[Rfam]
About this RNA: This 119-nucleotide RNA sequence from Populus trichocarpa belongs to the Rfam family "MIR6462 microRNA precursor family". Gene Ontology terms of the family: RISC complex and miRNA-mediated post-transcriptional gene silencing. It is one of the family's seed sequences. The base pairs follow the family's consensus structure, which was predicted with RNAalifold.
RNA sequence: CGACCGGCAAGGGACAAAAAUGGCAUAAGAGAGAUGUACAGGGGUAGGGAAGGGGAAGAGAAAGAUCGAUAUCUACGCCCCUUCUUUUUCUCUUAUGCAUUUUUGUCCCUCGCCAGUCU
Numbered sequence: 001c002g003a004c005c006g007g008c009a010a011g012g013g014a015c016a017a018a019a020a021u022g023g024c025a026u027a028a029g030a031g032a033g034a035u036g037u038a039c040a041g042g043g044g045u046a047g048g049g050a051a052g053g054g055g056a057a058g059a060g061a062a063a064g065a066u067c068g069a070u071a072u073c074u075a076c077g078c079c080c081c082u083u084c085u086u087u088u089u090c091u092c093u094u095a096u097g098c099a100u101u102u103u104u105g106u107c108c109c110u111c112g113c114c115a116g117u118c119u
Stems, first nucleotide, its partner, number of pairs: 002118003006114003010110013024097011043085002051083005058076001059074003063070001